Notes: The record is a 123-nucleotide RNA sequence from Tolypothrix tenuis, which matches "Nitrogen stress-induced RNA 9" in Rfam. It scores 104 bits against the family's covariance model. The source organism's lineage runs through Bacteria, Bacillati, Tolypothrichaceae, Tolypothrix and Tolypothrix tenuis. It is annotated as a small RNA.

RNA sequence: AAACAUAUUCACGUCUGUGAGUGUGGCUAAUUAAAUUUAGUCACUGUUGCUGAUUGUUGGGAAGGUGUAAGGACAACCCUUCUGGGGGUUUUCCUGCAUGACGGGCAUCUCUUGCAGAUGCCC
Numbered sequence: 001a002a003a004c005a006u007a008u009u010c011a012c013g014u015c016u017g018u019g020a021g022u023g024u025g026g027c028u029a030a031u032u033a034a035a036u037u038u039a040g041u042c043a044c045u046g047u048u049g050c051u052g053a054u055u056g057u058u059g060g061g062a063a064g065g066u067g068u069a070a071g072g073a074c075a076a077c078c079c080u081u082c083u084g085g086g087g088g089u090u091u092u093c094c095u096g097c098a099u100g101a102c103g104g105g106c107a108u109c110u111c112u113u114g115c116a117g118a119u120g121c122c123c
Stems, first nucleotide, its partner, number of pairs: 006065001008063003012059002015056001017054002020051003023044007066098004071093003076089004103123008